[Rfam]
RNA sequence: AUAGUUGAUCCGCUUAAUUUCCGUCAAGGAAAGCGGGGGAACCAACAAUCGGCAGCCGAUGUGAGAGUCGGAGCCGGUUAUGGGGUGAAUCCUGUAUGGAUGCGUCAAAUGUGCAUCUGUACGGGUAGGGCGACUCUCACCGCCCGAAUCCGACAGCUAACCUCGUAAGCGUAUGUAGAGAGGAUGA
Numbered sequence: 001a002u003a004g005u006u007g008a009u010c011c012g013c014u015u016a017a018u019u020u021c022c023g024u025c026a027a028g029g030a031a032a033g034c035g036g037g038g039g040a041a042c043c044a045a046c047a048a049u050c051g052g053c054a055g056c057c058g059a060u061g062u063g064a065g066a067g068u069c070g071g072a073g074c075c076g077g078u079u080a081u082g083g084g085g086u087g088a089a090u091c092c093u094g095u096a097u098g099g100a101u102g103c104g105u106c107a108a109a110u111g112u113g114c115a116u117c118u119g120u121a122c123g124g125g126u127a128g129g130g131c132g133a134c135u136c137u138c139a140c141c142g143c144c145c146g147a148a149u150c151c152g153a154c155a156g157c158u159a160a161c162c163u164c165g166u167a168a169g170c171g172u173a174u175g176u177a178g179a180g181a182g183g184a185u186g187a
Stems, first nucleotide, its partner, number of pairs: 011171004018032005033166006043082002083151003091125014128145004
Dot-bracket structure: ..........((((...(((((.....)))))((((((....((....................................))(((.....((((((((((((((.......))))))))))))))..((((..........))))...))).........)))))).))))................
Shown here is a 187-nucleotide sequence from Paenibacillus agri, a member of the family "c-di-AMP riboswitch aptamer (ydaO/yuaA leader)". About the family: This family represents a conserved RNA structure found upstream of the ydaO and yuaA genes in Bacillus subtilis and related genes in other bacteria. Rfam links the family to the GO terms regulation of gene expression and cyclic-di-AMP binding. The source organism's lineage runs through Bacteria, Bacillota, Caryophanales, Paenibacillaceae and Paenibacillus. The match comes from Rfam's covariance-model search (98 bits).